[Rfam]
RNA sequence: UGGAGGACUGAGAAGGUAAGACAGUUAAACUUUAUGCUGUAUCUUACUGGUUAUAGCCUCCAAAAUUAAAAUUGUGCAACAGCAGCUCAUGCUCCCCUCCUGACAUGAGGGAAAGCAGUACUGCAGUUGCACAUAAGCC
Numbered sequence: 001u002g003g004a005g006g007a008c009u010g011a012g013a014a015g016g017u018a019a020g021a022c023a024g025u026u027a028a029a030c031u032u033u034a035u036g037c038u039g040u041a042u043c044u045u046a047c048u049g050g051u052u053a054u055a056g057c058c059u060c061c062a063a064a065a066u067u068a069a070a071a072u073u074g075u076g077c078a079a080c081a082g083c084a085g086c087u088c089a090u091g092c093u094c095c096c097c098u099c100c101u102g103a104c105a106u107g108a109g110g111g112a113a114a115g116c117a118g119u120a121c122u123g124c125a126g127u128u129g130c131a132c133a134u135a136a137g138c139c
Stems, first nucleotide, its partner, number of pairs: 002061005015048004019042001021040005082130002087126001090123002097118002100115002104111001
Dot-bracket structure: .(((((........(((((.(((((..........))))).)..))))........)))))....................((...(..((.....((.((..(......)..)).))...))..)..)).........
This 139-nucleotide sequence from Atrichornis clamosus belongs to the Rfam family "Small nucleolar RNA SNORA47". On this family, see Huttenhofer et al., EMBO J 2001: "RNomics: an experimental approach that identifies 201 candidates for novel, small, non-messenger RNAs in mouse". It is annotated as an H/ACA-box small nucleolar RNA. Gene Ontology terms of the family: RNA processing and nucleolus. The source organism's lineage runs through Eukaryota, Deuterostomia, Euteleostomi, Neoaves and Atrichornis.